[Rfam]
RNA: cis-regulatory element of the bglG/LicT operon
Organism: Clostridioides difficile
RNA sequence: AAUUUUAAUUAUGGCGACGUAGUCAUAAUUUUGAGUAUGUUACUGAUUAGCAGGCAGAACUCAAGUAUAUAUGUGAAAAAUAGAGGGAUACUCUAUACAUAUAUGCUUGAGUUCUUUUUAUUGAAGGGAGGAAUAUA
Numbered sequence: 001a002a003u004u005u006u007a008a009u010u011a012u013g014g015c016g017a018c019g020u021a022g023u024c025a026u027a028a029u030u031u032u033g034a035g036u037a038u039g040u041u042a043c044u045g046a047u048u049a050g051c052a053g054g055c056a057g058a059a060c061u062c063a064a065g066u067a068u069a070u071a072u073g074u075g076a077a078a079a080a081u082a083g084a085g086g087g088a089u090a091c092u093c094u095a096u097a098c099a100u101a102u103a104u105g106c107u108u109g110a111g112u113u114c115u116u117u118u119u120a121u122u123g124a125a126g127g128g129a130g131g132a133a134u135a136u137a
Stems, first nucleotide, its partner, number of pairs: 002036004007030009037136005043131002047127002051123003056115019080096006